[Rfam]
RNA: ROOL RNA
RNA sequence: GAAAUGGAUAUGUGACGUUGAUAACUCAGUGAAGACGCAAUGCGAUGUUGCGGCUGAGAAGCGUCCGAAAAGUGCUCGGAGGACACGAAAGACGGAUACGUCUGGAAACCUGACCGCGCCCUGAUGGUGACUGAAAGGGCGAAUCCCUGUUGGGAGAAAGUAAAGGCGCUGUGCUAAAGUUAUCGCAAGCAAAGGCAUCCGUGGAGUGGCGGGAGCAAUAGAAGGUGGGCGUUAAAAGCGUGACCUGAAUCCUGAUAAGGCAUUAGCUGGUGACUGUUGCAGACUCAGGAAAGACCAACAAUCUCGUUUGCGGUGAUGUCGUGGAAACACGGCUAUAACACUCUACAGAAUCGGAGUAGCAGAAAUCGCAGUGACAAAAUGAUAUUAGAAGAAAAUGUUUUAUUGAAGAACAUCUUAUUCUGAAUAUCCUGUGAAACGUGCUCGUAAACAGUCGGGUGGCAGCUUGUGGAGAAAUCCAAGGGCAAGAAGUUAUAUGGGGACGCUCAUGUGGCUCAGACUUGUCUUCUGCGUGGCUGAAUAUGCUUGAAGGUAGCAGAGGUAAGACGAAGGUCUAUCAAUGAAACGUAUUCAUU
Numbered sequence: 001g002a003a004a005u006g007g008a009u010a011u012g013u014g015a016c017g018u019u020g021a022u023a024a025c026u027c028a029g030u031g032a033a034g035a036c037g038c039a040a041u042g043c044g045a046u047g048u049u050g051c052g053g054c055u056g057a058g059a060a061g062c063g064u065c066c067g068a069a070a071a072g073u074g075c076u077c078g079g080a081g082g083a084c085a086c087g088a089a090a091g092a093c094g095g096a097u098a099c100g101u102c103u104g105g106a107a108a109c110c111u112g113a114c115c116g117c118g119c120c121c122u123g124a125u126g127g128u129g130a131c132u133g134a135a136a137g138g139g140c141g142a143a144u145c146c147c148u149g150u151u152g153g154g155a156g157a158a159a160g161u162a163a164a165g166g167c168g169c170u171g172u173g174c175u176a177a178a179g180u181u182a183u184c185g186c187a188a189g190c191a192a193a194g195g196c197a198u199c200c201g202u203g204g205a206g207u208g209g210c211g212g213g214a215g216c217a218a219u220a221g222a223a224g225g226u227g228g229g230c231g232u233u234a235a236a237a238g239c240g241u242g243a244c245c246u247g248a249a250u251c252c253u254g255a256u257a258a259g260g261c262a263u264u265a266g267c268u269g270g271u272g273a274c275u276g277u278u279g280c281a282g283a284c285u286c287a288g289g290a291a292a293g294a295c296c297a298a299c300a301a302u303c304u305c306g307u308u309u310g311c312g313g314u315g316a317u318g319u320c321g322u323g324g325a326a327a328c329a330c331g332g333c334u335a336u337a338a339c340a341c342u343c344u345a346c347a348g349a350a351u352c353g354g355a356g357u358a359g360c361a362g363a364a365a366u367c368g369c370a371g372u373g374a375c376a377a378a379a380u381g382a383u384a385u386u387a388g389a390a391g392a393a394a395a396u397g398u399u400u401u402a403u404u405g406a407a408g409a410a411c412a413u414c415u416u417a418u419u420c421u422g423a424a425u426a427u428c429c430u431g432u433g434a435a436a437c438g439u440g441c442u443c444g445u446a447a448a449c450a451g452u453c454g455g456g457u458g459g460c461a462g463c464u465u466g467u468g469g470a471g472a473a474a475u476c477c478a479a480g481g482g483c484a485a486g487a488a489g490u491u492a493u494a495u496g497g498g499g500a501c502g503c504u505c506a507u508g509u510g511g512c513u514c515a516g517a518c519u520u521g522u523c524u525u526c527u528g529c530g531u532g533g534c535u536g537a538a539u540a541u542g543c544u545u546g547a548a549g550g551u552a553g554c555a556g557a558g559g560u561a562a563g564a565c566g567a568a569g570g571u572c573u574a575u576c577a578a579u580g581a582a583a584c585g586u587a588u589u590c591a592u593u
Base pairs, nucleotide, nucleotide: 007590008589019578025058026057027056028055029054036052037051038050039049040048060170061169062168063167065166066165077116078115079114080111081110082109086105088103091102092101093100094099117141118140119139120138121137122136125134126131144155145154146153147152181553184550188545189544194541195535198349199348201346202345203344204343205342206341207340208339209307210306211305212304213303214302229241230240231239232238250290251289252288253287254286255285260280261279262278264276265275266274268297269296270295271294308371309370310369311368312367318333319332320331321330322329353437359432360431361430362429364427419517420516421515422514442456443455459529460528461527462477468476469475480525481524482523485520486519489513491510492509493508495506496505497504498503562573563572564571565570